Shown here is an 89-nucleotide RNA from Oryza brachyantha, a member of the family "Small nucleolar RNA snoR109". The family's consensus secondary structure was predicted with WAR. Gene Ontology terms of the family: nucleolus and RNA processing. Rfam 15.1 lists 680 matches to the family in 220 species. A reference for the family is Marker et al. (2002), "Experimental RNomics: identification of 140 candidates for small non-messenger RNAs in the plant Arabidopsis thaliana", Curr Biol. Rfam classes the family as an H/ACA-box small nucleolar RNA. The organism belongs to Oryza, within Eukaryota.
RNA sequence: AGGCUGUAGCCAAAUCAACAUGGGAAGUAAAACUGGUCGGGUUGCCAAUUGACUCCAUGGGCAUUCCGCUUACCGAACUUCCCAUAUUC
Numbered sequence: 001a002g003g004c005u006g007u008a009g010c011c012a013a014a015u016c017a018a019c020a021u022g023g024g025a026a027g028u029a030a031a032a033c034u035g036g037u038c039g040g041g042u043u044g045c046c047a048a049u050u051g052a053c054u055c056c057a058u059g060g061g062c063a064u065u066c067c068g069c070u071u072a073c074c075g076a077a078c079u080u081c082c083c084a085u086a087u088u089c
Stems, first nucleotide, its partner, number of pairs: 022083007035070003039066004044062003